[Rfam]
RNA sequence: AGUCCUCUUACAGGGGCCAAAUCCGGAAGCAUUCACACUGUGACCCCUGUCAUAUUCUUGUUAAUCUGUGGACUCUAUU
Numbered sequence: 001a002g003u004c005c006u007c008u009u010a011c012a013g014g015g016g017c018c019a020a021a022u023c024c025g026g027a028a029g030c031a032u033u034c035a036c037a038c039u040g041u042g043a044c045c046c047c048u049g050u051c052a053u054a055u056u057c058u059u060g061u062u063a064a065u066c067u068g069u070g071g072a073c074u075c076u077a078u079u
Base pairs, nucleotide, nucleotide: 013047014046015045016044018042021079025076026075027074029041030040031039051068052067054065055064056063
Dot-bracket structure: ............((((.(..[...[[[.(((.......)))).))))...((.(((......))).)).....]]]..]

Mammalian CPEB3 ribozyme: a 79-nucleotide RNA sequence from Microcaecilia unicolor. From the family's description: The mammalian CPEB3 ribozyme is a self cleaving RNA located in the second intron of the CPEB3 gene which belongs to a family of genes regulating messenger RNA polyadenylation. This ribozyme is highly conserved and found only in mammals. The CPEB3 ribozyme is structurally and biochemically related to the human hepatitis delta virus (HDV) ribozyme and the HDV ribozyme is proposed to have arisen from the human transcriptome. There is currently only one other known self cleaving ribozyme in mammals, the CoTC motif. A search with the family's covariance model found it, with a score of 35 bits. Lineage of the source: Eukaryota > Euteleostomi > Dipnotetrapodomorpha > Gymnophiona > Microcaecilia. Gene Ontology term of the family: RNA nuclease activity.